Shown here is a 59-nucleotide sequence, a member of the family "L2-Alphaproteobacteria ribosomal protein leader". By type it is a cis-regulatory leader. The literature on the family includes a 2020 paper in BMC Microbiol by Eckert and Weinberg, "Discovery of 20 novel ribosomal leader candidates in bacteria and archaea".
RNA sequence: GGGGACCUUCGGGGCCCUAUAACCCGGGUCGCAAGACCCGCAGCAGACGGAAGACAGAA
Numbered sequence: 001g002g003g004g005a006c007c008u009u010c011g012g013g014g015c016c017c018u019a020u021a022a023c024c025c026g027g028g029u030c031g032c033a034a035g036a037c038c039c040g041c042a043g044c045a046g047a048c049g050g051a052a053g054a055c056a057g058a059a
Stems, first nucleotide, its partner, number of pairs: 001018004006014003026039005